[Rfam]
RNA sequence: CCACUCUGAAAAGCGGAGCCGACGCUCCCGCCGACGGUGAAAGACGGGCUGCCCGUCGAAACUCUCAGGCCGAUGACAGAGGGGGA
Numbered sequence: 001c002c003a004c005u006c007u008g009a010a011a012a013g014c015g016g017a018g019c020c021g022a023c024g025c026u027c028c029c030g031c032c033g034a035c036g037g038u039g040a041a042a043g044a045c046g047g048g049c050u051g052c053c054c055g056u057c058g059a060a061a062c063u064c065u066c067a068g069g070c071c072g073a074u075g076a077c078a079g080a081g082g083g084g085g086a
Base pairs, nucleotide, nucleotide: 001084002083004081005080006079007078008077015028016027017026018025030070031069032068033066034065037064039062043057044056045055046054
Dot-bracket structure: ((.(((((......((((......)))).(((((..(.(...((((.......))))....).))).)))......))))).))..